A member of the RNA family "Archaeal RNase P", 297 nucleotides long. The family is grouped with related families in Rfam's "RNaseP clan". By type it is a ribozyme. Rfam's curators write: Ribonuclease P (RNase P) is a ubiquitous endoribonuclease, found in archaea, bacteria and eukarya as well as chloroplasts and mitochondria. The literature on the family includes a 1998 paper in Annu Rev Biochem by Frank and Pace, "Ribonuclease P: unity and diversity in a tRNA processing ribozyme". It is one of the family's seed sequences.

RNA sequence: GGGAGUAGGAGGACCGCUGACAGAGUUCGACUCUGAGGAAAGUCCCCUCUCCAAAGUGCAGGCGGCUACCAAAAGGAAGCAAACAGAAAUGGUUGGGUUCAGGCUGCAGAAACGAACGAUGCAAGGUGUGUACAAUGACGUUGAAAGACCGAGGUUGCCUUGUUGUCGAUGAGACGAGCCACCCCGCCGGAGCAAGUCCAAACCGUCCCGUUGACUCGGCACGACGAGGGACAGGUAGGAUGCACAGUUGAAUGCGGUCACCGAAAGGGAACAGAAAGGGGCUUACUCCCUACUCCC
Numbered sequence: 001g002g003g004a005g006u007a008g009g010a011g012g013a014c015c016g017c018u019g020a021c022a023g024a025g026u027u028c029g030a031c032u033c034u035g036a037g038g039a040a041a042g043u044c045c046c047c048u049c050u051c052c053a054a055a056g057u058g059c060a061g062g063c064g065g066c067u068a069c070c071a072a073a074a075g076g077a078a079g080c081a082a083a084c085a086g087a088a089a090u091g092g093u094u095g096g097g098u099u100c101a102g103g104c105u106g107c108a109g110a111a112a113c114g115a116a117c118g119a120u121g122c123a124a125g126g127u128g129u130g131u132a133c134a135a136u137g138a139c140g141u142u143g144a145a146a147g148a149c150c151g152a153g154g155u156u157g158c159c160u161u162g163u164u165g166u167c168g169a170u171g172a173g174a175c176g177a178g179c180c181a182c183c184c185c186g187c188c189g190g191a192g193c194a195a196g197u198c199c200a201a202a203c204c205g206u207c208c209c210g211u212u213g214a215c216u217c218g219g220c221a222c223g224a225c226g227a228g229g230g231a232c233a234g235g236u237a238g239g240a241u242g243c244a245c246a247g248u249u250g251a252a253u254g255c256g257g258u259c260a261c262c263g264a265a266a267g268g269g270a271a272c273a274g275a276a277a278g279g280g281g282c283u284u285a286c287u288c289c290c291u292a293c294u295c296c297c
Stems, first nucleotide, its partner, number of pairs: 001297003005293005010287002012259006021035005040284003044281005049192004056222004061188005066079002069076002080095003084091001096183002102180004117168003121163007140149002196241004205232005